The family of this 97-nucleotide RNA from Peptostreptococcaceae bacterium oral taxon 113 is "SAM riboswitch aptamer (S box leader)". Its family is annotated with regulation of gene expression in the Gene Ontology. A reference for the family is Rodionov et al. (2004), "Comparative genomics of the methionine metabolism in Gram-positive bacteria: a variety of regulatory systems", Nucleic Acids Res.

[Rfam]
RNA sequence: UACUUAUUAAGAGAGGUGGAGGGAAUAGGUCCGAUGAAGCCCGGCAACCGAUUGGAUUCGGUGCUACAUCCUACAGGAAAGUCCUGAAAGAUAAGUG
Numbered sequence: 001u002a003c004u005u006a007u008u009a010a011g012a013g014a015g016g017u018g019g020a021g022g023g024a025a026u027a028g029g030u031c032c033g034a035u036g037a038a039g040c041c042c043g044g045c046a047a048c049c050g051a052u053u054g055g056a057u058u059c060g061g062u063g064c065u066a067c068a069u070c071c072u073a074c075a076g077g078a079a080a081g082u083c084c085u086g087a088a089a090g091a092u093a094a095g096u097g
Stems, first nucleotide, its partner, number of pairs: 001097008013042001015041003021032003026073004043065004048061002051058001069089001074086005